A member of the RNA family "mir-942 microRNA precursor family" from Macaca mulatta, 86 nucleotides long. The literature on the family includes a 2007 paper in Cancer Res by Lui et al., "Patterns of known and novel small RNAs in human cervical cancer". The base pairs follow the family's consensus structure, which was predicted with RNAalifold.
[Rfam]
RNA sequence: AUUAAGAGAGUACCUUCUCUGUUUUGGCCAUGUGUGUACUCACAGCCCCUCACACGUGGCCGAAACAGAGAAGGUACUUUCCUAAU
Numbered sequence: 001a002u003u004a005a006g007a008g009a010g011u012a013c014c015u016u017c018u019c020u021g022u023u024u025u026g027g028c029c030a031u032g033u034g035u036g037u038a039c040u041c042a043c044a045g046c047c048c049c050u051c052a053c054a055c056g057u058g059g060c061c062g063a064a065a066c067a068g069a070g071a072a073g074g075u076a077c078u079u080u081c082c083u084a085a086u
Stems, first nucleotide, its partner, number of pairs: 001086004006081007014073023